[Rfam]
RNA sequence: CCGCGAGGACGACCUCGUCGCUGCAUCGCCCCGGGGACGACCUCG
Number, nucleotide and partner (000 for none) at each position: 001c020002c000003g018004c017005g016006a015007g014008g013009a000010c000011g000012a000013c008014c007015u006016c005017g004018u003019c000020g001021c000022u000023g000024c000025a000026u000027c000028g000029c000030c000031c000032c045033g044034g043035g042036g041037a000038c000039g000040a000041c036042c035043u034044c033045g032